serC leader: a 53-nucleotide sequence from Aureimonas pseudogalii.
It scores 65 bits against the family's covariance model.
[Rfam]
RNA sequence: CGGCGGGACACGCCUCCCCAACGAGGCGCCGACUAUCUGAGAGGAUAGACCAU
Numbered sequence: 001c002g003g004c005g006g007g008a009c010a011c012g013c014c015u016c017c018c019c020a021a022c023g024a025g026g027c028g029c030c031g032a033c034u035a036u037c038u039g040a041g042a043g044g045a046u047a048g049a050c051c052a053u
Base pairs, nucleotide, nucleotide: 011028012027013026014025015024016023033048034047035046036045037044038043
It is annotated as a cis-regulatory leader. On this family, see Corbino et al., Genome Biol 2005: "Evidence for a second class of S-adenosylmethionine riboswitches and other regulatory RNA motifs in alpha-proteobacteria".